[Rfam]
RNA: Glycine riboswitch aptamer
Organism: Paenibacillus sp. KS1
RNA sequence: AUGAUGGUAAAGGGAGAGACUGCUGAGACAUAGCAGCGCCGAAGGAGUAAGCCUGAAUGGGUGAAUCUCUCAGGCAAAAGGACUUUUACCGGACG
Numbered sequence: 001a002u003g004a005u006g007g008u009a010a011a012g013g014g015a016g017a018g019a020c021u022g023c024u025g026a027g028a029c030a031u032a033g034c035a036g037c038g039c040c041g042a043a044g045g046a047g048u049a050a051g052c053c054u055g056a057a058u059g060g061g062u063g064a065a066u067c068u069c070u071c072a073g074g075c076a077a078a079a080g081g082a083c084u085u086u087u088a089c090c091g092g093a094c095g
Stems, first nucleotide, its partner, number of pairs: 006090008020036004038075003041071002045069003051062002